[Rfam]
RNA sequence: AUAGUCGCACAUUUUAUUACUCGUAUAUCCCCUGAAUAUGGCAGGGAGUAUCUACCGGAAACCUUAAAUUUCCGACUAUGGGUGAAUUUGAUAUAGCU
Numbered sequence: 001a002u003a004g005u006c007g008c009a010c011a012u013u014u015u016a017u018u019a020c021u022c023g024u025a026u027a028u029c030c031c032c033u034g035a036a037u038a039u040g041g042c043a044g045g046g047a048g049u050a051u052c053u054a055c056c057g058g059a060a061a062c063c064u065u066a067a068a069u070u071u072c073c074g075a076c077u078a079u080g081g082g083u084g085a086a087u088u089u090g091a092u093a094u095a096g097c098u
Stems, first nucleotide, its partner, number of pairs: 018084008030046005056074006
The record is a 98-nucleotide RNA sequence from Clostridium chauvoei, which matches "Purine riboswitch aptamer" in Rfam. It scores 70 bits against the family's covariance model. Lineage of the source: Bacteria > Bacillati > Clostridia > Clostridium > Clostridium chauvoei.